Record summary: Shown here is a 131-nucleotide RNA sequence from Merops nubicus, a member of the family "Small nucleolar RNA SNORA22". From the family's description: ACA22 is a member of the H/ACA class of snoRNA that guide the sites of modification of uridines to pseudouridines. It scores 101 bits against the family's covariance model. The source organism's lineage runs through Eukaryota, Sarcopterygii, Saurischia, Neognathae and Merops. Rfam 15.1 lists 883 matches to the family in 606 species. The family's RNA type in Rfam is H/ACA-box small nucleolar RNA. The base pairs follow the family's consensus structure, which was predicted with RNAfold.
Nucleotides: 131
Stems, first nucleotide, its partner, number of pairs: 003055006010049001016041005022035001024033003057071002060068003076117001078115002080109003084104007
Number, partner (000 for none) and nucleotide at each position: 001000c002000u003055g004054c005053a006052c007051a008050g009000u010049g011000a012000a013000c014000a015000c016041c017040c018039a019038g020037g021000u022035g023000g024033g025032c026031u027000u028000u029000g030000u031026a032025g033024u034000u035022c036000c037020c038019u039018u040017g041016g042000u043000u044000u045000c046000a047000g048000u049010u050008c051007u052006g053005u054004g055003c056000u057071a058070g059000a060068a061067u062066a063000a064000u065000c066062u067061g068060u069000g070058c071057u072000u073000c074000c075000c076117u077000c078115u079114g080109c081108a082107u083000u084104g085103g086102a087101a088100g089099g090098a091000u092000u093000u094000g095000c096000a097000u098090u099089c100088c101087u102086u103085u104084u105000a106000c107082a108081u109080g110000c111000a112000u113000u114079c115078a116000c117076a118000a119000g120000g121000a122000c123000a124000g125000g126000a127000c128000a129000u130000u131000u